[Rfam]
RNA sequence: CGCGCACAGGAUAAAAACGCAACGCGGGCCUUCACCCGCCAGAGCUGGUAGGUAGCCCAGCCAUCUGCACUUCGGCGCAGGUAAGUAACCCUCCCCUCCGGGUCGUCCGUUCCUGUGUACCAUACA
Number, nucleotide and partner (000 for none) at each position: 001c000002g000003c000004g118005c117006a116007c115008a114009g113010g112011a111012u000013a000014a000015a000016a000017a000018c000019g000020c000021a000022a000023c000024g000025c000026g000027g000028g000029c000030c000031u000032u000033c000034a000035c000036c000037c000038g000039c000040c000041a000042g000043a000044g061045c060046u059047g058048g057049u000050a000051g000052g000053u000054a000055g000056c000057c048058c047059a046060g045061c044062c000063a082064u081065c080066u079067g078068c077069a000070c000071u000072u000073c000074g000075g000076c000077g068078c067079a066080g065081g064082u063083a000084a000085g000086u000087a000088a000089c000090c000091c000092u000093c102094c101095c100096c000097u000098c000099c000100g095101g094102g093103u000104c000105g000106u000107c000108c000109g000110u000111u011112c010113c009114u008115g007116u006117g005118u004119a000120c000121c000122a000123u000124a000125c000126a000

The record is a 126-nucleotide RNA sequence from Firmicutes bacterium CAG:124, which matches "azaaromatic riboswitch aptamer (yjdF RNA)" in Rfam. NCBI's taxonomy places the organism under Bacteria, Bacillati, Bacillota. The base pairs follow the family's consensus structure, which is taken from published work.